[Rfam]
The family of this 54-nucleotide RNA from Lepisosteus oculatus is "Small nucleolar RNA SNORD66". The family's consensus secondary structure was predicted with RNAalifold. NCBI's taxonomy places the organism under Eukaryota, Metazoa, Bilateria, Chordata, Lepisosteus. By type it is a C/D-box small nucleolar RNA. snoRNA HBII-142 is part of the C/D family of snoRNAs. It is the human orthologue of the mouse MBII-142 snoRNA and is predicted to guide 2'O-ribose methylation of small 18S rRNA at residue C1272.
RNA sequence: CUCCCCUGAUGAUCCGUUGUUUAGUUCCAUACUGUCUGGGCCACUGGUCCGGAG
Numbered sequence: 001c002u003c004c005c006c007u008g009a010u011g012a013u014c015c016g017u018u019g020u021u022u023a024g025u026u027c028c029a030u031a032c033u034g035u036c037u038g039g040g041c042c043a044c045u046g047g048u049c050c051g052g053a054g
Stems, first nucleotide, its partner, number of pairs: 001054004